[Rfam]
RNA: Purine riboswitch aptamer
Organism: Gracilibacillus thailandensis
RNA sequence: AUGAAUAAACAAAAACUAUAUCAUAUAAUCCCGGUAAUAUGGUCUGGGAGUUUCUACGGAGCAACCGAUAAUUGCUCUACUAUGGACGUUGGAUGUUAGAAC
Numbered sequence: 001a002u003g004a005a006u007a008a009a010c011a012a013a014a015a016c017u018a019u020a021u022c023a024u025a026u027a028a029u030c031c032c033g034g035u036a037a038u039a040u041g042g043u044c045u046g047g048g049a050g051u052u053u054c055u056a057c058g059g060a061g062c063a064a065c066c067g068a069u070a071a072u073u074g075c076u077c078u079a080c081u082a083u084g085g086a087c088g089u090u091g092g093a094u095g096u097u098a099g100a101a102c
Stems, first nucleotide, its partner, number of pairs: 021085005029049006058078007